[Rfam]
RNA sequence: CCCACACCCAUGUGUGUAGGACCUCAAAUGAUCACCAUUAAAUUUGGCAUAGAUCUUUAGAAAAGUUAUUAUAUGGGUGUGGGACUUAACUUUUCUAGAGAUUUGUGCCAAAUUUAAUAGUGAUCCUUUGGGGUUCUAUUCACGUGGGUGUGGG
Dot-bracket structure: .((((((((((((..(((((((((((((.(((.((.(((((((((((((((((((((((((((((((((((((....)))))....)))))))))))))))))))))))))))))))).)).))).)))))))))))))..)))))))))))).
Numbered sequence: 001c002c003c004a005c006a007c008c009c010a011u012g013u014g015u016g017u018a019g020g021a022c023c024u025c026a027a028a029u030g031a032u033c034a035c036c037a038u039u040a041a042a043u044u045u046g047g048c049a050u051a052g053a054u055c056u057u058u059a060g061a062a063a064a065g066u067u068a069u070u071a072u073a074u075g076g077g078u079g080u081g082g083g084a085c086u087u088a089a090c091u092u093u094u095c096u097a098g099a100g101a102u103u104u105g106u107g108c109c110a111a112a113u114u115u116a117a118u119a120g121u122g123a124u125c126c127u128u129u130g131g132g133g134u135u136c137u138a139u140u141c142a143c144g145u146g147g148g149u150g151u152g153g154g
Stems, first nucleotide, its partner, number of pairs: 002153012016139013030125003034121002037118032069082005